The record is a 153-nucleotide RNA sequence from Sulfitobacter sp. HI0023, which matches "Ruegeria cis2 sRNA" in Rfam. The literature on the family includes a 2016 paper in Front Microbiol by Rivers et al., "Experimental Identification of Small Non-Coding RNAs in the Model Marine Bacterium Ruegeria pomeroyi DSS-3". Taxonomically the source falls in Sulfitobacter (Bacteria, Pseudomonadati, Pseudomonadota, Alphaproteobacteria).
RNA sequence: AUUGCUGUAGCGGGGGUAGUAAUUGAUGAACGCGAAGCCCCGGCUUUGAUCGAUGGCGUGAAACAGCGGGUUCCAGUCGAACAUCGCCAGCAUGAAACCGGGCAGCGUGUUGGCAAGGAACAUCUUGCCCGAUGCGAUCAUGUUCGCGCGCUG
Numbered sequence: 001a002u003u004g005c006u007g008u009a010g011c012g013g014g015g016g017u018a019g020u021a022a023u024u025g026a027u028g029a030a031c032g033c034g035a036a037g038c039c040c041c042g043g044c045u046u047u048g049a050u051c052g053a054u055g056g057c058g059u060g061a062a063a064c065a066g067c068g069g070g071u072u073c074c075a076g077u078c079g080a081a082c083a084u085c086g087c088c089a090g091c092a093u094g095a096a097a098c099c100g101g102g103c104a105g106c107g108u109g110u111u112g113g114c115a116a117g118g119a120a121c122a123u124c125u126u127g128c129c130c131g132a133u134g135c136g137a138u139c140a141u142g143u144u145c146g147c148g149c150g151c152u153g
Stems, first nucleotide, its partner, number of pairs: 002035003006032003014024002037057003041052003064153005070082004086147002089144006098134001101130002103127003107123002110119002
Dot-bracket structure: .(((.(((.....((.......)).....)))))).(((.(((......)))..)))......(((((.((((.....))))...((.((((((...(..(((((.((.((......))..)).))).))...)....)))))).)).)))))

The match comes from Rfam's covariance-model search (132 bits). It is annotated as a small RNA.